Rfam assigns this 80-nucleotide sequence from Crocodylus porosus to the family "Mammalian CPEB3 ribozyme". Rfam's curators write: The mammalian CPEB3 ribozyme is a self cleaving RNA located in the second intron of the CPEB3 gene which belongs to a family of genes regulating messenger RNA polyadenylation. This ribozyme is highly conserved and found only in mammals. The CPEB3 ribozyme is structurally and biochemically related to the human hepatitis delta virus (HDV) ribozyme and the HDV ribozyme is proposed to have arisen from the human transcriptome. There is currently only one other known self cleaving ribozyme in mammals, the CoTC motif. The family's consensus secondary structure is taken from published work. The match comes from Rfam's covariance-model search (46 bits). Lineage of the source: Eukaryota > Chordata > Vertebrata > Teleostomi > Crocodylus.
RNA sequence: AGAGGUCAAAAGUUUGAGGCUGUAGCAGAAGUGCUCAUGGUGCGGCCCUGUCAGAUUCCAGCGAAUCUGCAGAUUCUGUU
Numbered sequence: 001a002g003a004g005g006u007c008a009a010a011a012g013u014u015u016g017a018g019g020c021u022g023u024a025g026c027a028g029a030a031g032u033g034c035u036c037a038u039g040g041u042g043c044g045g046c047c048c049u050g051u052c053a054g055a056u057u058c059c060a061g062c063g064a065a066u067c068u069g070c071a072g073a074u075u076c077u078g079u080u
Stems, first nucleotide, its partner, number of pairs: 016048001018047004024080007031043003052069007